[Rfam]
RNA: Bacterial RNase P class A
RNA sequence: UGAGCCGGCCGGGCGGCCGCGGCAUCGGCGACGAUGUCGAGGAAAGUCCGGACUCCACAGGGCACGGUGGUGGCUAACGGCCACCCACGGCGACGUGCGGGACAGUGCCACAGAAAGCAGACCGCCAGCGGCCCUCGUCGAUGACGAGGGUGCGGGUAAGGGUGAAACGGUGAGGUAAGAGCUCACCAGCGCGGCGGGUGACCGUCGUGGCUCGGUAAACCCCACCGGGAGCAAGACCAAGAGGGCCUUCGGGCCUGCGCUGAUGGGCGGCCCGUCCGAUGUCAGCGGGUAGGUCGCACCGAGGUGCGCAGCGAUGCGCAUCCCAGAUGGAUGGUCGCCCCUCGCCUCCGGGUGAGGACAGAAUCCGGCUUAUAGGCCGGCUCAUUCG
Numbered sequence: 001u002g003a004g005c006c007g008g009c010c011g012g013g014c015g016g017c018c019g020c021g022g023c024a025u026c027g028g029c030g031a032c033g034a035u036g037u038c039g040a041g042g043a044a045a046g047u048c049c050g051g052a053c054u055c056c057a058c059a060g061g062g063c064a065c066g067g068u069g070g071u072g073g074c075u076a077a078c079g080g081c082c083a084c085c086c087a088c089g090g091c092g093a094c095g096u097g098c099g100g101g102a103c104a105g106u107g108c109c110a111c112a113g114a115a116a117g118c119a120g121a122c123c124g125c126c127a128g129c130g131g132c133c134c135u136c137g138u139c140g141a142u143g144a145c146g147a148g149g150g151u152g153c154g155g156g157u158a159a160g161g162g163u164g165a166a167a168c169g170g171u172g173a174g175g176u177a178a179g180a181g182c183u184c185a186c187c188a189g190c191g192c193g194g195c196g197g198g199u200g201a202c203c204g205u206c207g208u209g210g211c212u213c214g215g216u217a218a219a220c221c222c223c224a225c226c227g228g229g230a231g232c233a234a235g236a237c238c239a240a241g242a243g244g245g246c247c248u249u250c251g252g253g254c255c256u257g258c259g260c261u262g263a264u265g266g267g268c269g270g271c272c273c274g275u276c277c278g279a280u281g282u283c284a285g286c287g288g289g290u291a292g293g294u295c296g297c298a299c300c301g302a303g304g305u306g307c308g309c310a311g312c313g314a315u316g317c318g319c320a321u322c323c324c325a326g327a328u329g330g331a332u333g334g335u336c337g338c339c340c341c342u343c344g345c346c347u348c349c350g351g352g353u354g355a356g357g358a359c360a361g362a363a364u365c366c367g368g369c370u371u372a373u374a375g376g377c378c379g380g381c382u383c384a385u386u387c388g
Base pairs, nucleotide, nucleotide: 001384002383003382004381005380006379007378008377009376010375011373012339013338014337015336016335017334018333020039021038022037023036024035025034026033027032044371045370046369048368049367050366051365052364053231054230055229056228060273061272062271063270065227066226067225068224069223070084071083072082073081074080085099086097087096088095089094100222101221105220106219107216108215109214122161123160124157125156126155128153129152130151132149169187170186171185172184173183174182189211190209191208192207193206194205195204196203197202235295236294237293238292245286246285250281264278265277266276267275268274303322304321305320306319307318308317309316310315